[Rfam]
RNA sequence: UUGGAUGUGAAUUGAUUUAUGUUUGGAUAUAUUUUACUAAAAGUGAUUCUUAUGAGUUGAUGUUAUUUAAUAA
Numbered sequence: 001u002u003g004g005a006u007g008u009g010a011a012u013u014g015a016u017u018u019a020u021g022u023u024u025g026g027a028u029a030u031a032u033u034u035u036a037c038u039a040a041a042a043g044u045g046a047u048u049c050u051u052a053u054g055a056g057u058u059g060a061u062g063u064u065a066u067u068u069a070a071u072a073a
Base pairs, nucleotide, nucleotide: 011061012060013059014058015057016056017055018054021053022052025049026048027047028046030045031044032043033042034041

Background: The family of this 73-nucleotide RNA from Medicago truncatula is "MIR5272 microRNA precursor family". Rfam 15.1 lists 271 matches to the family in 4 species. Its family is annotated with RISC complex and miRNA-mediated post-transcriptional gene silencing in the Gene Ontology.